[Rfam]
RNA: Eukaryotic small subunit ribosomal RNA, nucleotides 1634 to 1799
RNA sequence: CCGCCCGUCGCUACUACCGAUUGAAUGGCUUAGUGAGGACUUGGGAGAGUACAUCGGGGAGCCAGCAAUGGCACCCUGACGGCUCAAACUCUUACAAACUUGGUCAUUUAGAGGAAGUAAAAGUCGUAACAAGGUAUCUGUAGGUGAACCUGCAGAUGGAUCAUUU
Numbered sequence: 001c002c003g004c005c006c007g008u009c010g011c012u013a014c015u016a017c018c019g020a021u022u023g024a025a026u027g028g029c030u031u032a033g034u035g036a037g038g039a040c041u042u043g044g045g046a047g048a049g050u051a052c053a054u055c056g057g058g059g060a061g062c063c064a065g066c067a068a069u070g071g072c073a074c075c076c077u078g079a080c081g082g083c084u085c086a087a088a089c090u091c092u093u094a095c096a097a098a099c100u101u102g103g104u105c106a107u108u109u110a111g112a113g114g115a116a117g118u119a120a121a122a123g124u125c126g127u128a129a130c131a132a133g134g135u136a137u138c139u140g141u142a143g144g145u146g147a148a149c150c151u152g153c154a155g156a157u158g159g160a161u162c163a164u165u166u
Stems, first nucleotide, its partner, number of pairs: 001133001003130001006126002009123001012119004017114002021110001023109008032100003037095001039093001043089001047085004052081001054079005061072003135158010